[Rfam]
RNA: Glycine riboswitch aptamer
RNA sequence: UGAUCCCGCGCGGGAGAGCGCCCUCGCAGCCGGCGGGGGCCGCCGAAGGAGCAAACCCUCCCCGGAACCUCUCAGGCCCCAGGACCGCGCGGACCAG
Numbered sequence: 001u002g003a004u005c006c007c008g009c010g011c012g013g014g015a016g017a018g019c020g021c022c023c024u025c026g027c028a029g030c031c032g033g034c035g036g037g038g039g040c041c042g043c044c045g046a047a048g049g050a051g052c053a054a055a056c057c058c059u060c061c062c063c064g065g066a067a068c069c070u071c072u073c074a075g076g077c078c079c080c081a082g083g084a085c086c087g088c089g090c091g092g093a094c095c096a097g
Stems, first nucleotide, its partner, number of pairs: 006092008020040006042077003045073002049071003056064001